[Rfam]
RNA sequence: CCGUGCUAGACGGGGAGGUAGCGGUGCCCUGUAACUCGCAAUCCGCUCCAGCGAGGUUGAAUUCCUGUUUGAGGUCUUGGAAUGCAGGAAUCGGCAGGUCACGUAUCGUGUUGACGGAAGGGUCCUCCGCGAGGAACGGCCAUGAACCCGGUCAGGUCCGGAAGGAAGCAGCCGUAAGUGGUGACGUUCUUGUGUUGGAGGAGUGCUCGUCCUGAGCGGUCUUGCCUGUGCGACUGGAUUUCAACGGUCGAGGACAGGUGCACGG
Numbered sequence: 001c002c003g004u005g006c007u008a009g010a011c012g013g014g015g016a017g018g019u020a021g022c023g024g025u026g027c028c029c030u031g032u033a034a035c036u037c038g039c040a041a042u043c044c045g046c047u048c049c050a051g052c053g054a055g056g057u058u059g060a061a062u063u064c065c066u067g068u069u070u071g072a073g074g075u076c077u078u079g080g081a082a083u084g085c086a087g088g089a090a091u092c093g094g095c096a097g098g099u100c101a102c103g104u105a106u107c108g109u110g111u112u113g114a115c116g117g118a119a120g121g122g123u124c125c126u127c128c129g130c131g132a133g134g135a136a137c138g139g140c141c142a143u144g145a146a147c148c149c150g151g152u153c154a155g156g157u158c159c160g161g162a163a164g165g166a167a168g169c170a171g172c173c174g175u176a177a178g179u180g181g182u183g184a185c186g187u188u189c190u191u192g193u194g195u196u197g198g199a200g201g202a203g204u205g206c207u208c209g210u211c212c213u214g215a216g217c218g219g220u221c222u223u224g225c226c227u228g229u230g231c232g233a234c235u236g237g238a239u240u241u242c243a244a245c246g247g248u249c250g251a252g253g254a255c256a257g258g259u260g261c262a263c264g265g
Base pairs, nucleotide, nucleotide: 001265002264003263004262005261006260009058010057011056012030013029014028015027017025019023035055036054037053038052039051064258065257066256067255068254069253070252073249074248075247076246079242080241081240082239083238085236086235087234092232093231094229095228096227097226098225099224103221107218108217109216116212117211118210120208121207122206123205124201125200126199127198128197129196130192131191133190134189135188136187137186139182140181141180142179143178149174150173151172152171157166158165159164
Shown here is a 265-nucleotide sequence from Cohnella pontilimi, a member of the family "Bacterial large signal recognition particle RNA". The base pairs follow the family's consensus structure, which is taken from published work. The organism belongs to Cohnella, within Bacteria. The match comes from Rfam's covariance-model search (187 bits). From the family's description: The signal recognition particle (SRP) is a universally conserved ribonucleoprotein involved in the co-translational targeting of proteins to membranes.